[Rfam]
RNA sequence: CUCAUGCCUAGGCUGAUCACCGAAAACCGGAUUCCUUUCACCGGCUGGCAUGGGUUCUUUAUUUGAAAGG
Numbered sequence: 001c002u003c004a005u006g007c008c009u010a011g012g013c014u015g016a017u018c019a020c021c022g023a024a025a026a027c028c029g030g031a032u033u034c035c036u037u038u039c040a041c042c043g044g045c046u047g048g049c050a051u052g053g054g055u056u057c058u059u060u061a062u063u064u065g066a067a068a069g070g
Stems, first nucleotide, its partner, number of pairs: 001054008011021002027044004034070006
A member of the RNA family "int-alpA RNA" from Thiothrix eikelboomii, 70 nucleotides long. The family's RNA type in Rfam is small RNA. Acidobacteria (1 example), Planctomycetes (1 example), Proteobacteria.